[Rfam]
RNA sequence: AAGAUAAAACGUUCAACAGGGGGUAUUCCCCAUCUGAUAACUCACUAUUUUCGUCUAUAUCUGCGUCUUUUGUCUCCCAAAAACCAGGAGUCUGCUCUUAUUAAAGCCUUAGGUUAAUGUUUUUGCUAUUUUUUUACCGCAUGAAUAAAGCAUUACAU
Numbered sequence: 001a002a003g004a005u006a007a008a009a010c011g012u013u014c015a016a017c018a019g020g021g022g023g024u025a026u027u028c029c030c031c032a033u034c035u036g037a038u039a040a041c042u043c044a045c046u047a048u049u050u051u052c053g054u055c056u057a058u059a060u061c062u063g064c065g066u067c068u069u070u071u072g073u074c075u076c077c078c079a080a081a082a083a084c085c086a087g088g089a090g091u092c093u094g095c096u097c098u099u100a101u102u103a104a105a106g107c108c109u110u111a112g113g114u115u116a117a118u119g120u121u122u123u124u125g126c127u128a129u130u131u132u133u134u135u136a137c138c139g140c141a142u143g144a145a146u147a148a149a150g151c152a153u154u155a156c157a158u
Stems, first nucleotide, its partner, number of pairs: 003028002007024001010021001012019001036073001039070002044066002086098003